[Rfam]
RNA sequence: GCUGCGGCUAGGAACGCGAUCCGAAAGCCGGCCCCCUUACCGGUUGCCGCAGCCUCUUCUAAGGG
Numbered sequence: 001g002c003u004g005c006g007g008c009u010a011g012g013a014a015c016g017c018g019a020u021c022c023g024a025a026a027g028c029c030g031g032c033c034c035c036c037u038u039a040c041c042g043g044u045u046g047c048c049g050c051a052g053c054c055u056c057u058u059c060u061a062a063g064g065g
Stems, first nucleotide, its partner, number of pairs: 001053008011022002028043004034065005